[Rfam]
RNA sequence: AUUUUAAACUAGGGGAGCCAAUGCGCUGAGAGUAGGUUUCUGAAAUGUUCCUUGACCCUUGACCUGAUGUAGUUAGUACUACCGUAGGGAUGUUUACAAUUUUGUUU
Number, nucleotide and partner (000 for none) at each position: 001a000002u000003u000004u000005u000006a095007a094008a093009c092010u000011a059012g058013g057014g056015g000016a053017g026018c025019c000020a000021a000022u000023g000024c000025g018026c017027u000028g000029a000030g000031a000032g000033u000034a052035g051036g050037u000038u000039u000040c000041u000042g000043a000044a000045a000046u000047g000048u000049u000050c036051c035052u034053u016054g000055a000056c014057c013058c012059u011060u000061g000062a000063c088064c087065u086066g085067a000068u000069g082070u081071a080072g079073u000074u000075a000076g000077u000078a000079c072080u071081a070082c069083c000084g000085u066086a065087g064088g063089g000090a000091u000092g009093u008094u007095u006096a000097c000098a000099a000100u000101u000102u000103u000104g000105u000106u000107u000
Rfam assigns this 107-nucleotide sequence from Globicatella sp. HMSC072A10 to the family "TPP riboswitch aptamer (THI element)". NCBI's taxonomy places the organism under Bacteria, Bacillota, Bacilli, Lactobacillales, Globicatella. The match comes from Rfam's covariance-model search (60 bits).